RNA sequence: UUGACUGCGUGUUCGGCUCUCCACCAUUCAGCCGUGCACAGCUUGUAUAAGGAGGAUAUGGUAAAUCCCCGGGCUCGGGGUGCGGCAGUGUGGAGACCUGUCGUAAGGCGGCGCACGCAAGUGGCCGCGAGUCUGCUCGCGCGGAGGCGGGGCAGACGGAGCCGGUACUAUGGCA
Numbered sequence: 001u002u003g004a005c006u007g008c009g010u011g012u013u014c015g016g017c018u019c020u021c022c023a024c025c026a027u028u029c030a031g032c033c034g035u036g037c038a039c040a041g042c043u044u045g046u047a048u049a050a051g052g053a054g055g056a057u058a059u060g061g062u063a064a065a066u067c068c069c070c071g072g073g074c075u076c077g078g079g080g081u082g083c084g085g086c087a088g089u090g091u092g093g094a095g096a097c098c099u100g101u102c103g104u105a106a107g108g109c110g111g112c113g114c115a116c117g118c119a120a121g122u123g124g125c126c127g128c129g130a131g132u133c134u135g136c137u138c139g140c141g142c143g144g145a146g147g148c149g150g151g152g153c154a155g156a157c158g159g160a161g162c163c164g165g166u167a168c169u170a171u172g173g174c175a
Stems, first nucleotide, its partner, number of pairs: 009039004014034005067080004072163005081105008090097002108128005114123003131157008140149003

This 175-nucleotide RNA sequence belongs to the Rfam family "malK-I RNA".